[Rfam]
L17-Actino-Proteobacteria ribosomal protein leader: a 52-nucleotide RNA from Streptomyces albiflaviniger. Lineage of the source: Bacteria > Bacillati > Actinomycetes > Kitasatosporales > Streptomyces.
RNA sequence: GGACGGGCUGGAUUUUGUCCACUGACACCGGUACCUGAUACGGCCGGUGCAG
Numbered sequence: 001g002g003a004c005g006g007g008c009u010g011g012a013u014u015u016u017g018u019c020c021a022c023u024g025a026c027a028c029c030g031g032u033a034c035c036u037g038a039u040a041c042g043g044c045c046g047g048u049g050c051a052g
Base pairs, nucleotide, nucleotide: 004017005016006015007014022052023051024050026049027048028047029046030045031044032043